[Rfam]
Notes: The family of this 120-nucleotide sequence from Chelonoidis abingdonii is "MIR397 microRNA precursor family". Gene Ontology terms of the family: RISC complex and miRNA-mediated post-transcriptional gene silencing. The organism belongs to Chelonoidis nigra species complex, within Eukaryota. On this family, see Mica et al., BMC Genomics 2009: "High throughput approaches reveal splicing of primary microRNA transcripts and tissue specific expression of mature microRNAs in Vitis vinifera". It scores 55 bits against the family's covariance model.

RNA sequence: GAGAGAAAAAUAACUGUUUGUAGUGGUAAUGAAAAUGGCCCAUUUCCAGUUCCUUAUAUCUCCUUGUUAAAUGCUGGAAAUGGGCCAUUUUCAUUACCACUACAAACAGUUAUUUUUCUC
Dot-bracket structure: .....((((((.((((((((((((((((.((((((....................................................)))))).)))))))))))))))).))))))...